[Rfam]
ALIL pseudoknot: a 129-nucleotide sequence from Solicola gregarius. Rfam links the family to the GO term positive regulation of translational frameshifting. Lineage of the source: Bacteria > Actinomycetota > Actinomycetes > Nocardioidaceae > Solicola. It is annotated as a cis-regulatory element.

RNA sequence: GGCUUUCUUCGCGGCGGAGCUCGACUGCCCACACCGGUUCUAGUCGAUUUCAUCGACGAACACCGGGACAGGUUCGGGGUCGAGCCGAUCUGCAGGGUGCUGUCCGAGCACGGCUGCAGGAUCGCCCCG
Numbered sequence: 001g002g003c004u005u006u007c008u009u010c011g012c013g014g015c016g017g018a019g020c021u022c023g024a025c026u027g028c029c030c031a032c033a034c035c036g037g038u039u040c041u042a043g044u045c046g047a048u049u050u051c052a053u054c055g056a057c058g059a060a061c062a063c064c065g066g067g068a069c070a071g072g073u074u075c076g077g078g079g080u081c082g083a084g085c086c087g088a089u090c091u092g093c094a095g096g097g098u099g100c101u102g103u104c105c106g107a108g109c110a111c112g113g114c115u116g117c118a119g120g121a122u123c124g125c126c127c128c129g
Stems, first nucleotide, its partner, number of pairs: 013029005075129005086124002089121001090119006